[Rfam]
Nucleotides: 073
Base pairs, nucleotide, nucleotide: 008066009065011062012061013060014059017057018055023050024049027047028046029045030044031043
Number, partner (000 for none) and nucleotide at each position: 001000c002000g003000a004000g005000a006000u007000a008066a009065g010000u011062g012061g013060a014059g015000a016000a017057g018055u019000g020000g021000u022000g023050u024049c025000u026000g027047c028046a029045c030044u031043u032000u033000a034000u035000u036000g037000c038000c039000c040000a041000a042000c043031a044030a045029g046028u047027g048000a049024g050023a051000u052000u053000c054000a055018a056000c057017u058000c059014c060013u061012c062011c063000u064000a065009c066008u067000g068000a069000u070000c071000u072000c073000u

The record is a 73-nucleotide sequence from Apolygus lucorum, which matches "mir-1175 microRNA precursor family" in Rfam. Rfam 15.1 lists 181 matches to the family in 170 species. Gene Ontology terms of the family: RISC complex and miRNA-mediated post-transcriptional gene silencing.